[Rfam]
RNA: SAM riboswitch aptamer (S box leader)
Organism: Planococcus sp. PAMC 21323
RNA sequence: UUCUUAUCUAGAGAGACGGAGGGAUUUGGCCCUAUGAAGUCUCAGCAACCAGUCUGACGAAGACUACGGUGCUAAAUCCAAUAGGCUUUGCCUAGCAGAUGAGAA
Numbered sequence: 001u002u003c004u005u006a007u008c009u010a011g012a013g014a015g016a017c018g019g020a021g022g023g024a025u026u027u028g029g030c031c032c033u034a035u036g037a038a039g040u041c042u043c044a045g046c047a048a049c050c051a052g053u054c055u056g057a058c059g060a061a062g063a064c065u066a067c068g069g070u071g072c073u074a075a076a077u078c079c080a081a082u083a084g085g086c087u088u089u090g091c092c093u094a095g096c097a098g099a100u101g102a103g104a105a
Base pairs, nucleotide, nucleotide: 001105002104003103004102005101006100007099008098013043014042015041016040017039021032022031023030026081027080028079029078044073045072046071047070049069050068051065052064053063054062077097082094083093084092085091086090